[Rfam]
RNA sequence: GAACAAAUCCCUUUACAACGGAUCGUGAGGCACGUACCUGCCUCUGAAAGGAUUAGUAAUUA
Numbered sequence: 001g002a003a004c005a006a007a008u009c010c011c012u013u014u015a016c017a018a019c020g021g022a023u024c025g026u027g028a029g030g031c032a033c034g035u036a037c038c039u040g041c042c043u044c045u046g047a048a049a050g051g052a053u054u055a056g057u058a059a060u061u062a
Stems, first nucleotide, its partner, number of pairs: 009051002012048004027044006
RNA: msiK RNA